[Rfam]
The family of this 203-nucleotide RNA sequence from Tripterygium wilfordii is "MIR159 microRNA precursor family". The literature on the family includes a 2004 paper in Plant Cell by Sunkar and Zhu, "Novel and stress-regulated microRNAs and other small RNAs from Arabidopsis". The source organism's lineage runs through Eukaryota, Streptophyta, eudicotyledons, Celastrales and Tripterygium.
Nucleotides: 203
Stems, first nucleotide, its partner, number of pairs: 013189008023179003027175003036166001067142002070139003076133004084125001
Number, partner (000 for none) and nucleotide at each position: 001000g002000a003000g004000a005000g006000u007000g008000a009000g010000a011000a012000a013189g014188a015187g016186c017185u018184u019183c020182c021000u022000u023179c024178a025177g026000c027175c028174c029173a030000c031000u032000c033000a034000u035000g036166g037000a038000u039000a040000u041000u042000g043000g044000a045000a046000a047000a048000a049000a050000u051000a052000a053000g054000g055000g056000g057000a058000u059000c060000a061000a062000a063000g064000u065000a066000u067142c068141u069000g070139c071138c072137g073000a074000c075000u076133c077132a078131u079130u080000c081000a082000u083000u084125c085000a086000a087000g088000c089000a090000c091000c092000u093000a094000g095000u096000a097000c098000u099000u100000g101000a102000u103000c104000g105000a106000a107000u108000u109000a110000u111000u112000u113000a114000c115000u116000a117000c118000u119000g120000c121000g122000a123000u124000u125084g126000u127000g128000u129000g130079a131078a132077u133076g134000a135000u136000g137072c138071g139070g140000g141068a142067g143000a144000u145000a146000c147000u148000u149000c150000u151000u152000u153000g154000a155000u156000c157000u158000c159000u160000c161000u162000u163000u164000c165000u166036c167000u168000a169000u170000g171000c172000u173029u174028g175027g176000a177025c178024u179023g180000a181000a182020g183019g184018g185017a186016g187015c188014u189013c190000c191000u192000c193000u194000u195000u196000c197000u198000u199000u200000c201000u202000c203000u